[Rfam]
RNA sequence: UUGGUGGUUAAUGAUGCAGCUCUUUUUUCCCCGUCUUAUCGACCGUGGUGAUUCCUCUGCUAAUCAGCCAGUCUCACUGAAACCACAUA
Numbered sequence: 001u002u003g004g005u006g007g008u009u010a011a012u013g014a015u016g017c018a019g020c021u022c023u024u025u026u027u028u029c030c031c032c033g034u035c036u037u038a039u040c041g042a043c044c045g046u047g048g049u050g051a052u053u054c055c056u057c058u059g060c061u062a063a064u065c066a067g068c069c070a071g072u073c074u075c076a077c078u079g080a081a082a083c084c085a086c087a088u089a
Base pairs, nucleotide, nucleotide: 001089004086005085006084007083008082009081
This 89-nucleotide RNA sequence from Hemibagrus wyckioides belongs to the Rfam family "Small nucleolar SNORD12/SNORD106". The source organism's lineage runs through Eukaryota, Metazoa, Actinopteri, Osteoglossocephalai and Hemibagrus. The family is grouped with related families in Rfam's "SNORD12 clan". Rfam links the family to the GO terms nucleolus and RNA processing. A reference for the family is Vitali et al. (2003), "Identification of 13 novel human modification guide RNAs", Nucleic Acids Res.